[Rfam]
RNA: Ribosomal protein L10 leader
Organism: Lentihominibacter hominis
RNA sequence: AAAUAAGAAAAUAAUCGACCGUAGACAGCGGGUGGAAUGGGAUAUUCCUUAAUUUCCCGCCGAGGUACAAUGUAAAUACAUGUGCCUUGUUGUCCUGCGGACAGCAAGGUUUUUUAUAGCGUAC
Numbered sequence: 001a002a003a004u005a006a007g008a009a010a011a012u013a014a015u016c017g018a019c020c021g022u023a024g025a026c027a028g029c030g031g032g033u034g035g036a037a038u039g040g041g042a043u044a045u046u047c048c049u050u051a052a053u054u055u056c057c058c059g060c061c062g063a064g065g066u067a068c069a070a071u072g073u074a075a076a077u078a079c080a081u082g083u084g085c086c087u088u089g090u091u092g093u094c095c096u097g098c099g100g101a102c103a104g105c106a107a108g109g110u111u112u113u114u115u116a117u118a119g120c121g122u123a124c
Base pairs, nucleotide, nucleotide: 028060029059030058031057032056034048035047036046037045038044039043085109086108087107088106089105090104091103092102093101094100